RNA sequence: CGGAGCAGCCGCAGCUCGCACGCAGAGGACGCCCGGAGCCGGGAGCAGGCAGCCGGCGGGCACACGGACCGACGGACUCGCGCCGCGUCCACCUGUCGACCGGGCCGCGCCGAGCGCGCAGCGGGCACGCCGCGCGCGCGUUGCCGCCGUGCCCGCCGCCCGGGCCCCGCGCCAGGGCGCACACGCUCCCGCCCCCCCUCCCCCCCUCCCCGCCCCGGCCCGGGCGGGAGUUUGCACCUCUCCCGGCCUGGGUGCUCCGGCCGCCGCUGCAAAGCCAACUUUGGAAAAAGUUUUUUCGGGGAGACUCGGGCUUUGAGGUGCCGGCCCUGCGCUUUCCGAUUUGGGCGACCUCUCCAGAAGAUGUUGCAAAAAAGCUAGGCCGGAGGGCAGAGGAAAACGCCUGUAGCCGGCGAGGGAAGACGAACCAUCGAGUGCCGCGUUCCUUCUCUAGGAGGUUGGAGUCCCCGGGGCGCCCCCACACGGCUAGACGCCUCGGCUCGGAUCGCGACGCAGCCCCCCGGCCGUGGAUGCUCGCGCGGGCUCGGGAUCCGCCCAGGUAGCGGCCUCGGACCCAGGUCCCGCGCCCAGGUCCUCCCCAGCCCCCCAGCGACGGAGCCCGGGGG
Number, nucleotide and partner (000 for none) at each position: 001c000002g276003g275004a000005g270006c269007a268008g267009c266010c000011g264012c263013a000014g261015c260016u259017c000018g257019c000020a256021c000022g243023c000024a241025g240026a239027g238028g237029a000030c179031g178032c177033c176034c175035g000036g173037a000038g172039c171040c000041g000042g168043g167044a000045g165046c164047a000048g000049g000050c000051a000052g000053c000054c000055g111056g110057c109058g000059g106060g105061c104062a000063c000064a000065c102066g101067g100068a000069c000070c098071g097072a096073c095074g094075g093076a000077c000078u000079c087080g086081c085082g000083c000084c000085g081086c080087g079088u000089c000090c000091a000092c000093c075094u074095g073096u072097c071098g070099a000100c067101c066102g065103g000104g061105c060106c059107g000108c000109g057110c056111c055112g000113a000114g000115c162116g161117c000118g159119c158120a000121g156122c155123g154124g153125g152126c151127a150128c149129g148130c000131c140132g139133c138134g000135c000136g000137c000138g133139c132140g131141u000142u000143g000144c000145c000146g000147c000148c129149g128150u127151g126152c125153c124154c123155g122156c121157c000158g119159c118160c000161c116162g115163g000164g046165c045166c000167c043168c042169g000170c000171g039172c038173c036174a000175g034176g033177g032178c031179g030180c000181a000182c234183a233184c000185g231186c230187u229188c228189c227190c226191g225192c224193c223194c222195c000196c218197c217198c000199u000200c000201c000202c000203c000204c000205c000206c000207u000208c000209c000210c000211c000212g000213c000214c000215c000216c000217g197218g196219c000220c000221c000222g194223g193224g192225c191226g190227g189228g188229a187230g186231u185232u000233u183234g182235c000236a000237c028238c027239u026240c025241u024242c000243c022244c000245g000246g000247c000248c000249u000250g000251g000252g000253u000254g000255c000256u020257c018258c000259g016260g015261c014262c000263g012264c011265c000266g009267c008268u007269g006270c005271a000272a000273a000274g000275c003276c002277a000278a291279c290280u289281u288282u287283g000284g000285a000286a000287a282288a281289a280290g279291u278292u000293u000294u000295u000296u000297c000298g597299g596300g595301g594302a593303g592304a590305c589306u588307c000308g586309g585310g584311c583312u000313u000314u000315g000316a000317g000318g535319u534320g533321c000322c000323g000324g531325c530326c000327c527328u526329g525330c524331g523332c000333u000334u000335u000336c521337c520338g519339a000340u000341u000342u000343g000344g518345g517346c000347g515348a000349c513350c000351u000352c000353u000354c000355c000356a000357g000358a000359a000360g000361a000362u000363g000364u000365u000366g375367c374368a000369a000370a000371a000372a000373a000374g367375c366376u000377a000378g000379g411380c410381c409382g408383g407384a000385g000386g000387g404388c403389a402390g401391a000392g398393g000394a000395a000396a000397a000398c392399g000400c000401c390402u389403g388404u387405a000406g000407c383408c382409g381410g380411c379412g000413a000414g511415g000416g509417a000418a000419g506420a000421c505422g504423a503424a000425c501426c500427a498428u496429c495430g494431a493432g000433u486434g484435c483436c482437g481438c000439g479440u478441u460442c459443c458444u000445u455446c454447u453448c452449u000450a000451g000452g448453a447454g446455g445456u000457u000458g443459g442460a441461g471462u470463c469464c468465c000466c000467g000468g464469g463470g462471c461472g000473c000474c000475c000476c000477c000478a440479c439480a000481c437482g436483g435484c434485u000486a433487g000488a000489c000490g000491c000492c000493u431494c430495g429496g428497c000498u427499c000500g426501g425502a000503u423504c422505g421506c419507g000508a000509c416510g000511c414512a000513g349514c000515c347516c000517c345518c344519c338520g337521g336522c000523c331524g330525u329526g328527g327528a000529u000530g325531c324532u000533c320534g319535c318536g000537c000538g579539g578540g577541c576542u000543c000544g573545g572546g571547a000548u570549c569550c568551g567552c000553c000554c000555a566556g565557g564558u563559a000560g000561c000562g000563g558564c557565c556566u555567c551568g550569g549570a548571c546572c545573c544574a000575g000576g541577u540578c539579c538580c000581g000582c000583g311584c310585c309586c308587a000588g306589g305590u304591c000592c303593u302594c301595c300596c299597c298598a000599g000600c000601c000602c622603c621604c620605c619606a000607g616608c615609g000610a000611c000612g000613g000614a000615g608616c607617c000618c000619g605620g604621g603622g602623g000